[Rfam]
RNA sequence: UCGGCAGCCCAGAUGGGGGCCGAUAAUGGGAGACGCGAAGUUUCCUGUGCGUCUCCAUUCCAUGUUGCUUUACGGAGGAUAUGGCAAUGAGAA
Numbered sequence: 001u002c003g004g005c006a007g008c009c010c011a012g013a014u015g016g017g018g019g020c021c022g023a024u025a026a027u028g029g030g031a032g033a034c035g036c037g038a039a040g041u042u043u044c045c046u047g048u049g050c051g052u053c054u055c056c057a058u059u060c061c062a063u064g065u066u067g068c069u070u071u072a073c074g075g076a077g078g079a080u081a082u083g084g085c086a087a088u089g090a091g092a093a
Stems, first nucleotide, its partner, number of pairs: 001023005008017002030055008039046001056089004060084007068077003

The family of this 93-nucleotide RNA sequence from Neorhizobium sp. S3-V5DH is "Repression of heat shock gene expression (ROSE) element". About the family: This family represents a 5' UTR cis-regulatory element found in heat shock mRNAs and is known as the ROSE (repression of heat shock gene expression) element. The ROSE element is a negative regulator of heat shock gene expression. The secondary structure is thought to be regulated by temperature. This regulation blocks access to the ribosome binding site under normal conditions. During heat shock however, the structure changes freeing the ribosome binding site and allowing expression to occur. A search with the family's covariance model found it, with a score of 57 bits. Pairs were carried over by alignment from the consensus structure, which is taken from published work. NCBI's taxonomy places the organism under Bacteria, Pseudomonadota, Alphaproteobacteria, Rhizobiaceae, Neorhizobium. By type it is an RNA thermoregulator.